[Rfam]
RNA sequence: GAACGUUCAAUACACUCAGGUUUCUAGUUUUCUCUUCCGUAUUAGAAUCCUAUUUAUAUGAUUGAACAAGAUUAAUUGGCUUUUACUCAACAAGAUAACCUUUUUCCAUGGUUUUAUUGUUCCAUUAUUUCACUUUGUCAUACAA
Number, nucleotide and partner (000 for none) at each position: 001g000002a000003a000004c000005g000006u000007u065008c064009a063010a000011u000012a000013c000014a000015c000016u000017c000018a051019g050020g049021u000022u047023u046024c000025u044026a043027g042028u041029u000030u000031u000032c000033u000034c000035u000036u000037c000038c000039g000040u000041a028042u027043u026044a025045g000046a023047a022048u000049c020050c019051u018052a000053u000054u000055u000056a000057u000058a000059u000060g000061a000062u000063u009064g008065a007066a000067c000068a000069a000070g000071a000072u000073u000074a000075a000076u000077u000078g139079g138080c137081u000082u000083u000084u000085a000086c000087u000088c000089a000090a120091c119092a118093a117094g000095a115096u000097a113098a112099c111100c110101u000102u000103u000104u000105u000106c000107c000108a000109u000110g100111g099112u098113u097114u000115u095116a000117u093118u092119g091120u090121u000122c000123c000124a000125u000126u000127a000128u000129u000130u000131c000132a000133c000134u000135u000136u000137g080138u079139c078140a000141u000142a000143c000144a000145a000
A member of the RNA family "Small nucleolar RNA snR80" from Henningerozyma blattae, 145 nucleotides long. The base pairs follow the family's consensus structure, which was predicted with WAR. Rfam 15.1 lists 447 matches to the family in 358 species. On this family, see Schattner et al., Nucleic Acids Res 2004: "Genome-wide searching for pseudouridylation guide snoRNAs: analysis of the Saccharomyces cerevisiae genome". Its family is annotated with nucleolus and RNA processing in the Gene Ontology. The organism belongs to Henningerozyma blattae, within Eukaryota.